[Rfam]
RNA sequence: CAUGAAGACUGCAAAUAUGCGUGGUCUUCGACAUUUCUAAUCUAUCAAGCAUAUUGCUUACUGGAGAGACAGAUGGCACUUACCGCUGAGAAGAAGGCUGAGAUCGUUACCGAAUUCGGCCGUGGCGAG
Number, nucleotide and partner (000 for none) at each position: 001c000002a000003u000004g000005a000006a000007g026008a025009c024010u023011g022012c021013a000014a000015a000016u000017a000018u000019g000020c000021g012022u011023g010024g009025u008026c007027u000028u000029c000030g000031a000032c000033a000034u000035u000036u000037c000038u000039a000040a000041u000042c000043u000044a000045u000046c000047a000048a000049g083050c000051a081052u000053a000054u000055u000056g000057c000058u000059u000060a000061c000062u000063g080064g079065a000066g077067a000068g000069a000070c000071a000072g000073a000074u000075g000076g000077c066078a000079c064080u063081u051082a000083c049084c000085g000086c000087u000088g000089a000090g000091a000092a000093g000094a000095a000096g000097g000098c000099u000100g000101a000102g000103a000104u000105c000106g000107u000108u000109a000110c000111c000112g000113a000114a000115u000116u000117c000118g000119g000120c000121c000122g000123u000124g000125g000126c000127g000128a000129g000
About this RNA:
Shown here is a 129-nucleotide RNA sequence from Cobetia sp. UCD-24C, a member of the family "Ribosomal S15 leader". The match comes from Rfam's covariance-model search (55 bits). The family's consensus secondary structure is taken from published work. Rfam describes the family as follows. The E. coli Ribosomal S15 gene 5' UTR can form two alternative structures. One that is a series of three hairpins, The other includes a pseudoknot. This structure causes translational regulation of the S15 protein. The alignment of this family contains only the final two hairpins which are conserved in other species, and also includes the complete region that forms the alternate structures.